A member of the RNA family "c-di-GMP-I-GGC riboswitch aptamer" from Desulfobacter postgatei, 85 nucleotides long.

RNA sequence: AUAGAAAAUACCAAACCUGUUGUGAAGCAGGGACGGAAAGCCACGGGUCUUAAAGUUGCAUCAAUAGAAAGCCGGGUUGCCUUUU
Numbered sequence: 001a002u003a004g005a006a007a008a009u010a011c012c013a014a015a016c017c018u019g020u021u022g023u024g025a026a027g028c029a030g031g032g033a034c035g036g037a038a039a040g041c042c043a044c045g046g047g048u049c050u051u052a053a054a055g056u057u058g059c060a061u062c063a064a065u066a067g068a069a070a071g072c073c074g075g076g077u078u079g080c081c082u083u084u085u
Stems, first nucleotide, its partner, number of pairs: 001085001003082002011036002016031006034071001039078004044074003048068002
NCBI's taxonomy places the organism under Bacteria, Thermodesulfobacteriota, Desulfobacteraceae, Desulfobacter, Desulfobacter postgatei.